The record is a 165-nucleotide RNA sequence from Enterococcus saccharolyticus, which matches "Enterococcus sRNA B11" in Rfam. Pairs were carried over by alignment from the consensus structure, which was predicted with RNAfold. Rfam classes the family as a small RNA. On this family, see Shioya et al., PLoS One 2011: "Genome-wide identification of small RNAs in the opportunistic pathogen Enterococcus faecalis V583".
RNA sequence: GGCAACUUGCCCUAAAAGGGGGUGUUGUCUUGUUUGAACAAUUUAUCAUGUUAGUUGUUGCACCACUUUUUGUGGGCUUAGUCAUUGAACUAGUGAUGAGAAAGAUGACAACUAAAAAGCAAGUUGCUUGCUACCCACACGCUCGGAAUCGCAACGAGUGCAUAA
Numbered sequence: 001g002g003c004a005a006c007u008u009g010c011c012c013u014a015a016a017a018g019g020g021g022g023u024g025u026u027g028u029c030u031u032g033u034u035u036g037a038a039c040a041a042u043u044u045a046u047c048a049u050g051u052u053a054g055u056u057g058u059u060g061c062a063c064c065a066c067u068u069u070u071u072g073u074g075g076g077c078u079u080a081g082u083c084a085u086u087g088a089a090c091u092a093g094u095g096a097u098g099a100g101a102a103a104g105a106u107g108a109c110a111a112c113u114a115a116a117a118a119g120c121a122a123g124u125u126g127c128u129u130g131c132u133a134c135c136c137a138c139a140c141g142c143u144c145g146g147a148a149u150c151g152c153a154a155c156g157a158g159u160g161c162a163u164a165a
Stems, first nucleotide, its partner, number of pairs: 001128008010021004023037001052117001055114001057112004063075004078093005094101001140160005